[Rfam]
Background:
The record is a 113-nucleotide RNA from Catellatospora methionotrophica, which matches "TPP riboswitch aptamer (THI element)" in Rfam. The family's consensus secondary structure is taken from published work. About the family: Vitamin B(1) in its active form thiamin pyrophosphate (TPP) is an essential coenzyme that is synthesised by coupling of pyrimidine and thiazole moieties in bacteria.
RNA sequence: CAAGAACCCCACGGGAGCCCGGUGAACCGGGCUGAGAGGGGAGCUGAUUCUCGCUCCCGACCGUAGAACCUGAUCCGGGUAAUGCCGGCGCAGGGAGGAGGCCGCGGUGGCAC
Numbered sequence: 001c002a003a004g005a006a007c008c009c010c011a012c013g014g015g016a017g018c019c020c021g022g023u024g025a026a027c028c029g030g031g032c033u034g035a036g037a038g039g040g041g042a043g044c045u046g047a048u049u050c051u052c053g054c055u056c057c058c059g060a061c062c063g064u065a066g067a068a069c070c071u072g073a074u075c076c077g078g079g080u081a082a083u084g085c086c087g088g089c090g091c092a093g094g095g096a097g098g099a100g101g102c103c104g105c106g107g108u109g110g111c112a113c
Stems, first nucleotide, its partner, number of pairs: 007100001009098002011064004017032005039058005069094004075088004